[Rfam]
Nucleotides: 131
Base pairs, nucleotide, nucleotide: 016100017099019097021095022094023093024092025091026090027089028088029087030086031085033083034082036080038079039078047059048058049057050056051055061075062074063073104125105124106123107122108121109120110119111118112117
Number, partner (000 for none) and nucleotide at each position: 001000c002000u003000u004000u005000u006000a007000a008000u009000g010000a011000a012000c013000a014000a015000c016100g017099u018000u019097a020000u021095u022094u023093u024092u025091c026090g027089u028088u029087u030086c031085u032000u033083u034082u035000u036080u037000u038079a039078c040000u041000u042000u043000a044000g045000c046000a047059c048058c049057u050056g051055a052000a053000u054000c055051u056050c057049g058048g059047g060000g061075g062074c063073u064000u065000u066000u067000g068000c069000g070000u071000a072000u073063a074062g075061c076000g077000a078039g079038u080036a081000g082034a083033a084000u085031a086030g087029a088028a089027a090026c091025g092024a093023a094022a095021a096000g097019u098000u099017a100016c101000g102000c103000u104125a105124a106123a107122g108121c109120c110119u111118c112117c113000g114000u115000c116000a117112g118111g119110a120109g121108g122107c123106u124105u125104u126000u127000u128000u129000g130000u131000u
Rfam assigns this 131-nucleotide RNA from Lucilia cuprina to the family "Phenylalanine leader peptide". On this family, see Gurvich et al., Nucleic Acids Res 2010: "Two groups of phenylalanine biosynthetic operon leader peptides genes: a high level of apparently incidental frameshifting in decoding Escherichia coli pheL". By type it is a cis-regulatory leader. Rfam 15.1 lists 379 matches to the family in 290 species.